[Rfam]
RNA sequence: CUGUAUAGCUAGGGGAGCCUGAAGGCUGAGAGUCCGGUUCACCGGACGACCCUCCGAACCUGACCUGGAUAAUACCAGCGUAGGGAAGCGGCAGCAGGAGUCG
Numbered sequence: 001c002u003g004u005a006u007a008g009c010u011a012g013g014g015g016a017g018c019c020u021g022a023a024g025g026c027u028g029a030g031a032g033u034c035c036g037g038u039u040c041a042c043c044g045g046a047c048g049a050c051c052c053u054c055c056g057a058a059c060c061u062g063a064c065c066u067g068g069a070u071a072a073u074a075c076c077a078g079c080g081u082a083g084g085g086a087a088g089c090g091g092c093a094g095c096a097g098g099a100g101u102c103g
Stems, first nucleotide, its partner, number of pairs: 006091001008089003011053004017026003033046005059084004065078004